[Rfam]
RNA sequence: GUUGAAGUUCCAGCUAUUAAUGGAUAAGGUUUUUCUGCUAACAUAUAAGAAUUUUUGAAGAAAGAAAAGACAAAAAUACCCAAUAUCUUGUUCUAGCAAGAUAUUGGGUAUUUUGAAUCU
Numbered sequence: 001g002u003u004g005a006a007g008u009u010c011c012a013g014c015u016a017u018u019a020a021u022g023g024a025u026a027a028g029g030u031u032u033u034u035c036u037g038c039u040a041a042c043a044u045a046u047a048a049g050a051a052u053u054u055u056u057g058a059a060g061a062a063a064g065a066a067a068a069g070a071c072a073a074a075a076a077u078a079c080c081c082a083a084u085a086u087c088u089u090g091u092u093c094u095a096g097c098a099a100g101a102u103a104u105u106g107g108g109u110a111u112u113u114u115g116a117a118u119c120u
Stems, first nucleotide, its partner, number of pairs: 009024004062120001069118001073114007081106003085102005
About this RNA: Rfam assigns this 120-nucleotide RNA from Hordeum vulgare to the family "Plastid-psbA-1 3UTR RNA". For this family Rfam cites "Retrograde signaling in plants: A critical review focusing on the GUN pathway and beyond" (Richter et al., Plant Commun, 2023). Plastid psbA-1 is a non-coding RNA (ncRNA) present in plastids.